U4atac minor spliceosomal RNA: a 130-nucleotide RNA sequence from Carassius auratus.
The family's RNA type in Rfam is spliceosomal small nuclear RNA.
The literature on the family includes a 2005 paper in RNA by Lorkovic et al., "Evolutionary conservation of minor U12-type spliceosome between plants and humans".
A search with the family's covariance model found it, with a score of 95 bits.
[Rfam]
RNA sequence: ACCUUCCUUGUCUGGGGGUGGAAUGGGCGGUUCAAUGAACGUAUAGUGAGAACAGCCCUGCUGACACCUAACCAACACAAUCCGCAUCACCUGAACUUUAGGUUUAGGCUAUGGUGCAAUUUUUGGAACC
Numbered sequence: 001a002c003c004u005u006c007c008u009u010g011u012c013u014g015g016g017g018g019u020g021g022a023a024u025g026g027g028c029g030g031u032u033c034a035a036u037g038a039a040c041g042u043a044u045a046g047u048g049a050g051a052a053c054a055g056c057c058c059u060g061c062u063g064a065c066a067c068c069u070a071a072c073c074a075a076c077a078c079a080a081u082c083c084g085c086a087u088c089a090c091c092u093g094a095a096c097u098u099u100a101g102g103u104u105u106a107g108g109c110u111a112u113g114g115u116g117c118a119a120u121u122u123u124u125g126g127a128a129c130c
Stems, first nucleotide, its partner, number of pairs: 006018004021061001023059001027056002030053004039047002084117006090108006